[Rfam]
RNA sequence: AAAACUAAAAUGGGGAGCUGGAUUAAUCCGGCUGAGAGGAAGCUGUGUUGCUUCGACCCAUAUAACCUGAACUGGGUAAUGCCAGCGAAGGGAAAAUAUUGUCCAAAGUU
Numbered sequence: 001a002a003a004a005c006u007a008a009a010a011u012g013g014g015g016a017g018c019u020g021g022a023u024u025a026a027u028c029c030g031g032c033u034g035a036g037a038g039g040a041a042g043c044u045g046u047g048u049u050g051c052u053u054c055g056a057c058c059c060a061u062a063u064a065a066c067c068u069g070a071a072c073u074g075g076g077u078a079a080u081g082c083c084a085g086c087g088a089a090g091g092g093a094a095a096a097u098a099u100u101g102u103c104c105a106a107a108g109u110u
Stems, first nucleotide, its partner, number of pairs: 006098002011060004017032005039054005066091003072085004